The family of this 161-nucleotide RNA sequence from Nocardia huaxiensis is "c-di-AMP riboswitch aptamer (ydaO/yuaA leader)". A search with the family's covariance model found it, with a score of 79 bits. Taxonomically the source falls in Nocardia (Bacteria, Bacillati, Actinomycetota, Nocardiaceae). About the family: This family represents a conserved RNA structure found upstream of the ydaO and yuaA genes in Bacillus subtilis and related genes in other bacteria.
[Rfam]
RNA sequence: GCGACGUUACCGCCUAAUCGGAACGAGCAAGCAACUCGUCCCGUACCGGGGACCCAGUUUCUUCGGGGUGAAUCUCCUUCGGCCACCAGGCCGUUGGGGUAGGGCCUACUUCCUGGCCCGAACCCGUCAGCUAACCCGGUCGGCGGCAGGACACAGGAAGA
Numbered sequence: 001g002c003g004a005c006g007u008u009a010c011c012g013c014c015u016a017a018u019c020g021g022a023a024c025g026a027g028c029a030a031g032c033a034a035c036u037c038g039u040c041c042c043g044u045a046c047c048g049g050g051g052a053c054c055c056a057g058u059u060u061c062u063u064c065g066g067g068g069u070g071a072a073u074c075u076c077c078u079u080c081g082g083c084c085a086c087c088a089g090g091c092c093g094u095u096g097g098g099g100u101a102g103g104g105c106c107u108a109c110u111u112c113c114u115g116g117c118c119c120g121a122a123c124c125c126g127u128c129a130g131c132u133a134a135c136c137c138g139g140u141c142g143g144c145g146g147c148a149g150g151a152c153a154c155a156g157g158a159a160g161a
Stems, first nucleotide, its partner, number of pairs: 011145004019043002045140006055065001066125003074099004102119004